[Rfam]
RNA sequence: AUGCACCAGAUACUGACCUGUCUGCCUGCGGCUCAGUUGAGUUUUCUCACACUGAUGCAUGCAUGAUGGUGGCUGUCAGGUCCAAACGGUGCUACAGAAACACAAGACCCUGAGAUUGAAGCUCUGAGAGGGGAGUCGCUCCCUCAGGUGUUAGAACU
Dot-bracket structure: ..(((((.......((((.(.(.((((((((((.((((((......))).))).).)).)))).......))).).).)))).....))))).................................(((.((....)).)))........((....)).
Numbered sequence: 001a002u003g004c005a006c007c008a009g010a011u012a013c014u015g016a017c018c019u020g021u022c023u024g025c026c027u028g029c030g031g032c033u034c035a036g037u038u039g040a041g042u043u044u045u046c047u048c049a050c051a052c053u054g055a056u057g058c059a060u061g062c063a064u065g066a067u068g069g070u071g072g073c074u075g076u077c078a079g080g081u082c083c084a085a086a087c088g089g090u091g092c093u094a095c096a097g098a099a100a101c102a103c104a105a106g107a108c109c110c111u112g113a114g115a116u117u118g119a120a121g122c123u124c125u126g127a128g129a130g131g132g133g134a135g136u137c138g139c140u141c142c143c144u145c146a147g148g149u150g151u152u153a154g155a156a157c158u
Stems, first nucleotide, its partner, number of pairs: 003092005015082004020077001022075001024073003027063004031058002033055001035053003038049003126141003130137002150157002
This 158-nucleotide RNA sequence from Sinocyclocheilus anshuiensis belongs to the Rfam family "Small Cajal body specific RNA 1". Rfam links the family to the GO terms RNA processing, Cajal body and nucleolus. The family's RNA type in Rfam is small Cajal body RNA. The family has 29 seed sequences and 715 matches in Rfam 15.1. About the family: scaRNAs are a specific class of small nuclear RNAs which localise to the Cajal bodies and guide the modification of RNA polymerase II transcribed spliceosomal RNAs U1, U2, U4, U5 and U12. The literature on the family includes a 2002 paper in EMBO J by Darzacq et al., "Cajal body-specific small nuclear RNAs: a novel class of 2'-O-methylation and pseudouridylation guide RNAs".